[Rfam]
RNA sequence: GCAAGCCGAAGGGCAGCCACCGGUUUCCCGUAAGGGUUCAAACUGAGGAAACUCCACCCAUCACACAGAUCCACGGUGCUGUGAGGCACCUGCUGAGAAGCUGGACUCUGGAGCAGAAACGAAACGUCUUUUGGUGAAUGAAAAUGAAGCUUCAUCUAAAGAAGCAGAAAGACACUAAAAGGAACGGUGAAACGGCCAAUCCGUGGGAUGCAAGGGCAAAUGCUGCUGAUGAAAACUGUAUGAGGCAGAGGUAGUCCGCCUAGAUGAAUGCUGCCGAAACAGGAGGUGGGUUACUCCCGGCAUGC
Numbered sequence: 001g002c003a004a005g006c007c008g009a010a011g012g013g014c015a016g017c018c019a020c021c022g023g024u025u026u027c028c029c030g031u032a033a034g035g036g037u038u039c040a041a042a043c044u045g046a047g048g049a050a051a052c053u054c055c056a057c058c059c060a061u062c063a064c065a066c067a068g069a070u071c072c073a074c075g076g077u078g079c080u081g082u083g084a085g086g087c088a089c090c091u092g093c094u095g096a097g098a099a100g101c102u103g104g105a106c107u108c109u110g111g112a113g114c115a116g117a118a119a120c121g122a123a124a125c126g127u128c129u130u131u132u133g134g135u136g137a138a139u140g141a142a143a144a145u146g147a148a149g150c151u152u153c154a155u156c157u158a159a160a161g162a163a164g165c166a167g168a169a170a171g172a173c174a175c176u177a178a179a180a181g182g183a184a185c186g187g188u189g190a191a192a193c194g195g196c197c198a199a200u201c202c203g204u205g206g207g208a209u210g211c212a213a214g215g216g217c218a219a220a221u222g223c224u225g226c227u228g229a230u231g232a233a234a235a236c237u238g239u240a241u242g243a244g245g246c247a248g249a250g251g252u253a254g255u256c257c258g259c260c261u262a263g264a265u266g267a268a269u270g271c272u273g274c275c276g277a278a279a280c281a282g283g284a285g286g287u288g289g290g291u292u293a294c295u296c297c298c299g300g301c302a303u304g305c
Base pairs, nucleotide, nucleotide: 001305002304003303005301006300007299008298010295011294012275013274014273015272016271017270021045022044023043024042025041050292051291052290054289055288056287057286058285059210060209061208062207065239066238067237068236071206072205073204074203075202076089077088078087079086080085090103092101093100094099104201105200109198110197111196125186126185127184128181129180130179131178132177133176134175135174149165150164151163152162214257215256216255217254223248224247225246226245227244
RNA: Archaeal RNase P
Organism: Methanobacterium alkalithermotolerans